The family of this 77-nucleotide sequence from Austrofundulus limnaeus is "mir-92 microRNA precursor family". Its Rfam clan is "mir-92 microRNA precursor clan". The family's consensus secondary structure was predicted with PFOLD. A reference for the family is Houbaviy et al. (2003), "Embryonic stem cell-specific MicroRNAs", Dev Cell. The organism belongs to Austrofundulus, within Eukaryota.
[Rfam]
RNA sequence: UGUCCUGUGCAGGUGGGGAUUAGUAGCAAUGCUGUGCUCCUGGAGGUAUUGCACUUGUCCCGGCCUGUAAAGGAACA
Numbered sequence: 001u002g003u004c005c006u007g008u009g010c011a012g013g014u015g016g017g018g019a020u021u022a023g024u025a026g027c028a029a030u031g032c033u034g035u036g037c038u039c040c041u042g043g044a045g046g047u048a049u050u051g052c053a054c055u056u057g058u059c060c061c062g063g064c065c066u067g068u069a070a071a072g073g074a075a076c077a
Stems, first nucleotide, its partner, number of pairs: 004073003009068006016061005022055003026052008